[Rfam]
RNA: Small nucleolar RNA Z161/Z228
Organism: Triticum aestivum
RNA sequence: AUGCAUGUGAUGAGAAAGCAUAUGCAACUCACGACGGUCGUCUGAGACACUUUGUGUGUAAUGGUGCAUUCAUAUGUUCUCUGAUGCCU
Numbered sequence: 001a002u003g004c005a006u007g008u009g010a011u012g013a014g015a016a017a018g019c020a021u022a023u024g025c026a027a028c029u030c031a032c033g034a035c036g037g038u039c040g041u042c043u044g045a046g047a048c049a050c051u052u053u054g055u056g057u058g059u060a061a062u063g064g065u066g067c068a069u070u071c072a073u074a075u076g077u078u079c080u081c082u083g084a085u086g087c088c089u
Stems, first nucleotide, its partner, number of pairs: 001089001003087002048056003
Dot-bracket structure: (.((...........................................(((...))).............................)).)